[Rfam]
RNA sequence: UGACGGGGGCCCGCACAAGCGGCGGAGCAUGCGGAUUAAUUCGAUGCAACGCGAAGAACCUUACCAGGGCUUGACAUAACCUGGAUGAUGCCAGAGAUGGUGUGUCCCUUCGGGGCUGGGUUACAGGUGGUGCAUGGUCGUCGUCAGCUCGUGUCGUGAGAUGUUGGGUUAAGUCCCGCAACGAGCGCAACCCUUGCCUUGUGUUACCAGCGGGUCGUGCCGGGGACUCACAAGGGACCGCCGGGGUUAACUCGGAGGAAGGUGGGGAUGACGUCAGAUCAUCAUGCCCCUUACGUCCUGGGCUUCACGCAUGCUACAAUGGCUGGUACAGCGGGAUGCGAUACUGUAAGGUGGAGCGGAUCCUGUAAAACCGGUCUCAGUUCGGAUCGGGGCCUGCAACUCGGCCUCGUGAAGGUGGAGUCGCUAGUAAUCGCGGAUCAGCAGUGCCGCGGUGAAUGCGUUCCCGGGCCUUGUACACACCGCCCGUCAAGUCAUGAAAGUGGGCAGCACCCGAAGCCGGUGGCCUAACCUGUUGUGGGGGGAGCCGUCUAAGGUGAGGUUCGCGAUUGGGACUAAGUCGUAACAAGG
Numbered sequence: 001u002g003a004c005g006g007g008g009g010c011c012c013g014c015a016c017a018a019g020c021g022g023c024g025g026a027g028c029a030u031g032c033g034g035a036u037u038a039a040u041u042c043g044a045u046g047c048a049a050c051g052c053g054a055a056g057a058a059c060c061u062u063a064c065c066a067g068g069g070c071u072u073g074a075c076a077u078a079a080c081c082u083g084g085a086u087g088a089u090g091c092c093a094g095a096g097a098u099g100g101u102g103u104g105u106c107c108c109u110u111c112g113g114g115g116c117u118g119g120g121u122u123a124c125a126g127g128u129g130g131u132g133c134a135u136g137g138u139c140g141u142c143g144u145c146a147g148c149u150c151g152u153g154u155c156g157u158g159a160g161a162u163g164u165u166g167g168g169u170u171a172a173g174u175c176c177c178g179c180a181a182c183g184a185g186c187g188c189a190a191c192c193c194u195u196g197c198c199u200u201g202u203g204u205u206a207c208c209a210g211c212g213g214g215u216c217g218u219g220c221c222g223g224g225g226a227c228u229c230a231c232a233a234g235g236g237a238c239c240g241c242c243g244g245g246g247u248u249a250a251c252u253c254g255g256a257g258g259a260a261g262g263u264g265g266g267g268a269u270g271a272c273g274u275c276a277g278a279u280c281a282u283c284a285u286g287c288c289c290c291u292u293a294c295g296u297c298c299u300g301g302g303c304u305u306c307a308c309g310c311a312u313g314c315u316a317c318a319a320u321g322g323c324u325g326g327u328a329c330a331g332c333g334g335g336a337u338g339c340g341a342u343a344c345u346g347u348a349a350g351g352u353g354g355a356g357c358g359g360a361u362c363c364u365g366u367a368a369a370a371c372c373g374g375u376c377u378c379a380g381u382u383c384g385g386a387u388c389g390g391g392g393c394c395u396g397c398a399a400c401u402c403g404g405c406c407u408c409g410u411g412a413a414g415g416u417g418g419a420g421u422c423g424c425u426a427g428u429a430a431u432c433g434c435g436g437a438u439c440a441g442c443a444g445u446g447c448c449g450c451g452g453u454g455a456a457u458g459c460g461u462u463c464c465c466g467g468g469c470c471u472u473g474u475a476c477a478c479a480c481c482g483c484c485c486g487u488c489a490a491g492u493c494a495u496g497a498a499a500g501u502g503g504g505c506a507g508c509a510c511c512c513g514a515a516g517c518c519g520g521u522g523g524c525c526u527a528a529c530c531u532g533u534u535g536u537g538g539g540g541g542g543a544g545c546c547g548u549c550u551a552a553g554g555u556g557a558g559g560u561u562c563g564c565g566a567u568u569g570g571g572a573c574u575a576a577g578u579c580g581u582a583a584c585a586a587g588g
Stems, first nucleotide, its partner, number of pairs: 001477002003474003007471007015461002019424005024317001026315008034306002040055004064301007077123002080120005088103006106115003126290002129288004135284002137279003140275001142273002147186006153162003165178004192267004197235007207224002211222003238258002241255005321376007333364003338357002343352003383414001388409007430453007480587001482584001485580002490574004495569003500564006508556004516549001518547004524542003529538002
Rfam assigns this 588-nucleotide part of an RNA from Scardovia wiggsiae to the family "Bacterial small subunit ribosomal RNA".
For this family Rfam cites "Crystal structure of the ribosome at 5.5 A resolution" (Yusupov et al., Science, 2001).
The family's consensus secondary structure is taken from published work.